[Rfam]
RNA sequence: GGUCUAUUAGUCUAGUUGGUUAGGACGUCGGAUUCUGAUUCACUCCACACGAGUUGGAACAUUCCGUAAGCCCAGGUUCGAAUCCUGGAUGGACCU
Numbered sequence: 001g002g003u004c005u006a007u008u009a010g011u012c013u014a015g016u017u018g019g020u021u022a023g024g025a026c027g028u029c030g031g032a033u034u035c036u037g038a039u040u041c042a043c044u045c046c047a048c049a050c051g052a053g054u055u056g057g058a059a060c061a062u063u064c065c066g067u068a069a070g071c072c073c074a075g076g077u078u079c080g081a082a083u084c085c086u087g088g089a090u091g092g093a094c095c096u
Base pairs, nucleotide, nucleotide: 001095002094003093004092005091006090007089010026011025012024013023029066030065031064032063072088073087074086075085076084
RNA: tRNA
Organism: Colletotrichum higginsianum